Overview
L31-Actinobacteria ribosomal protein leader: a 57-nucleotide RNA from a Frankiaceae bacterium. Rfam classes the family as a cis-regulatory leader. The base pairs follow the family's consensus structure, which is taken from published work. The organism belongs to Frankiaceae, within Bacteria.
[Rfam]
Nucleotides: 057
Base pairs, nucleotide, nucleotide: 003057004056005055007052008051009050010049015046016045017044018043019042020041
Number, partner (000 for none) and nucleotide at each position: 001000c002000c003057g004056g005055c006000u007052c008051c009050g010049g011000u012000u013000c014000c015046c016045g017044u018043c019042c020041u021000c022000c023000a024000c025000c026000u027000g028000c029000g030000u031000c032000c033000g034000c035000g036000c037000a038000g039000a040000c041020g042019g043018g044017a045016c046015g047000a048000c049010c050009c051008g052007g053000c054000g055005g056004c057003c